[Rfam]
RNA sequence: CAGUGGGAAAAAGCCCACCAGGAUAAAAGUCGGAGUCCUGUAACUAGGGUAGCAGUAUUACGGGAAACCAAGAUACUGAAGCCUACCGACAACAUUAUUGUAAGAAUAAUGGUGAAUCAUCAGGCUGUAACGAGA
Numbered sequence: 001c002a003g004u005g006g007g008a009a010a011a012a013g014c015c016c017a018c019c020a021g022g023a024u025a026a027a028a029g030u031c032g033g034a035g036u037c038c039u040g041u042a043a044c045u046a047g048g049g050u051a052g053c054a055g056u057a058u059u060a061c062g063g064g065a066a067a068c069c070a071a072g073a074u075a076c077u078g079a080a081g082c083c084u085a086c087c088g089a090c091a092a093c094a095u096u097a098u099u100g101u102a103a104g105a106a107u108a109a110u111g112g113u114g115a116a117u118c119a120u121c122a123g124g125c126u127g128u129a130a131c132g133a134g135a
Base pairs, nucleotide, nucleotide: 019040020039021038022037023036048087049086050085051084052083053078054077055076056075057074058073062069063068094110095109096108097107098106099105112128113127114126